The record is a 128-nucleotide RNA sequence from Ixodes scapularis, which matches "U11 spliceosomal RNA" in Rfam. Lineage of the source: Eukaryota > Eumetazoa > Arthropoda > Ixodoidea > Ixodes. A search with the family's covariance model found it, with a score of 91 bits.
[Rfam]
RNA sequence: UAAAAGGGCAUUUGGCGCCGCUGCCAUGCAUUGCACUACGUGCAGUGUACAGAAUCGCCAUCAAGAGAUUCUGAAUGUAUAAUUUUUAGAGCUGGGGCAGUUGGUUGUCGUAAUGCACCGGCGCCCCG
Number, nucleotide and partner (000 for none) at each position: 001u000002a000003a000004a000005a000006g000007g000008g078009c077010a076011u075012u074013u026014g025015g024016c023017g022018c000019c000020g000021c000022u017023g016024c015025c014026a013027u049028g048029c047030a046031u045032u044033g043034c042035a041036c000037u000038a000039c000040g000041u035042g034043c033044a032045g031046u030047g029048u028049a027050c073051a072052g071053a070054a069055u068056c067057g000058c000059c000060a000061u000062c000063a000064a000065g000066a000067g056068a055069u054070u053071c052072u051073g050074a012075a011076u010077g009078u008079a000080u000081a000082a000083u000084u000085u000086u000087u000088a000089g000090a000091g000092c000093u000094g000095g126096g125097g124098c123099a000100g122101u121102u120103g119104g118105u000106u117107g116108u115109c000110g000111u000112a000113a000114u000115g108116c107117a106118c104119c103120g102121g101122c100123g098124c097125c096126c095127c000128g000